[Rfam]
RNA sequence: GCAGGUACGGGGACAUGGUGCCGGACACUAUCACGGGCAAGAUCGUCGGUGGCGUGUGUUCCCUAAGCGGAGUGCUCGUCAUCGCGCUUCCAGUCCCUGUCAUUGUGUCCAAC
Number, nucleotide and partner (000 for none) at each position: 001g113002c000003a000004g110005g109006u107007a106008c105009g104010g103011g000012g101013a100014c099015a098016u000017g096018g095019u000020g094021c093022c000023g000024g000025a000026c000027a000028c000029u000030a000031u000032c000033a000034c000035g000036g076037g075038c074039a073040a000041g000042a000043u000044c000045g000046u000047c000048g062049g061050u000051g000052g000053c000054g000055u000056g000057u000058g000059u000060u000061c049062c048063c000064u000065a000066a000067g000068c000069g000070g000071a000072g000073u039074g038075c037076u036077c000078g000079u000080c000081a000082u000083c000084g000085c000086g000087c000088u000089u000090c000091c000092a000093g021094u020095c018096c017097c000098u015099g014100u013101c012102a000103u010104u009105g008106u007107g006108u000109c005110c004111a000112a000113c001

Rfam assigns this 113-nucleotide sequence from Rhipicephalus sanguineus to the family "Potassium channel RNA editing signal". NCBI's taxonomy places the organism under Eukaryota, Eumetazoa, Panarthropoda, Arthropoda, Rhipicephalus. For this family Rfam cites "Control of human potassium channel inactivation by editing of a small mRNA hairpin" (Bhalla et al., Nat Struct Mol Biol, 2004). It is annotated as a cis-regulatory element. Rfam 15.1 lists 14,095 matches to the family in 1,000 species. This family represents a group of sequences related to the human potassium channel Kv1.1 hairpin element which directs the efficient modification of an adenosine to inosine by an adenosine deaminase acting on RNA (ADAR). The ADAR modification causes an isoleucine/valine recoding event which lies in the ion-conducting pore of the potassium channel. It is thought that this editing event targets the process of fast inactivation and allows a more rapid recovery from inactivation at negative potentials.